[Rfam]
RNA sequence: UGCAGUGCUACAGUACCUGUACCCAGCAGCCUUCUGGUGGGAUGUUCAAAACACAGUGCUACAGCACUAGUGCUGUGUUUGGCAUCCUUGGUUUUCCUCUUGCUGUGUCAAACCUGGUAUUUUUGCUGAAACAGCC
Numbered sequence: 001u002g003c004a005g006u007g008c009u010a011c012a013g014u015a016c017c018u019g020u021a022c023c024c025a026g027c028a029g030c031c032u033u034c035u036g037g038u039g040g041g042a043u044g045u046u047c048a049a050a051a052c053a054c055a056g057u058g059c060u061a062c063a064g065c066a067c068u069a070g071u072g073c074u075g076u077g078u079u080u081g082g083c084a085u086c087c088u089u090g091g092u093u094u095u096c097c098u099c100u101u102g103c104u105g106u107g108u109c110a111a112a113c114c115u116g117g118u119a120u121u122u123u124u125g126c127u128g129a130a131a132c133a134g135c136c
Stems, first nucleotide, its partner, number of pairs: 002059003006055002018050001019045003023041002025038001027036003062125003069121003073116001075114001081109005

The record is a 136-nucleotide RNA from Pteruthius melanotis, which matches "Small nucleolar RNA SNORA8" in Rfam. NCBI's taxonomy places the organism under Eukaryota, Euteleostomi, Sarcopterygii, Australaves, Pteruthius. Its family is annotated with RNA processing and nucleolus in the Gene Ontology. ACA8 is a member of the H/ACA class of snoRNA that guide the sites of modification of uridines to pseudouridines. The family's RNA type in Rfam is H/ACA-box small nucleolar RNA.